RNA sequence: UAAAAGGGUUUCUGCCGUGAGUGGCACACGGAGGAGGCACCACGUGCUCUAUCCGUGCGGAAUCGACAUCAAGAGAUUUCGGAAGCAUAAUUUUUGGCGACCGGGGCAGCCGGUGAUCACGUUACCUGGCGCUCCC
Numbered sequence: 001u002a003a004a005a006g007g008g009u010u011u012c013u014g015c016c017g018u019g020a021g022u023g024g025c026a027c028a029c030g031g032a033g034g035a036g037g038c039a040c041c042a043c044g045u046g047c048u049c050u051a052u053c054c055g056u057g058c059g060g061a062a063u064c065g066a067c068a069u070c071a072a073g074a075g076a077u078u079u080c081g082g083a084a085g086c087a088u089a090a091u092u093u094u095u096g097g098c099g100a101c102c103g104g105g106g107c108a109g110c111c112g113g114u115g116a117u118c119a120c121g122u123u124a125c126c127u128g129g130c131g132c133u134c135c136c
Base pairs, nucleotide, nucleotide: 008086009085010084011083012082013026014025015024016023017022027057028056029055030054031053032052034050036048037047038046058081059080060079061078062077063076064075104134105133106132107131109130110129111128112127113126115125
The family of this 136-nucleotide sequence from Callorhinchus milii is "U11 spliceosomal RNA". It is one of the family's seed sequences. The family has 72 seed sequences and 2,595 matches in Rfam 15.1. Its Rfam clan is "U1 clan". The base pairs follow the family's consensus structure, which is taken from published work. The family's RNA type in Rfam is spliceosomal small nuclear RNA. Gene Ontology terms of the family: U11 snRNP, mRNA 5'-splice site recognition and pre-mRNA 5'-splice site binding.